RNA sequence: CGGGGGCUACGCGCAGACGCCCCGCCGAACCGAUGGCCAUGCCAUCCAAGCUCUGC
Numbered sequence: 001c002g003g004g005g006g007c008u009a010c011g012c013g014c015a016g017a018c019g020c021c022c023c024g025c026c027g028a029a030c031c032g033a034u035g036g037c038c039a040u041g042c043c044a045u046c047c048a049a050g051c052u053c054u055g056c
Stems, first nucleotide, its partner, number of pairs: 001024005013056005032046005
RNA: chrB-b RNA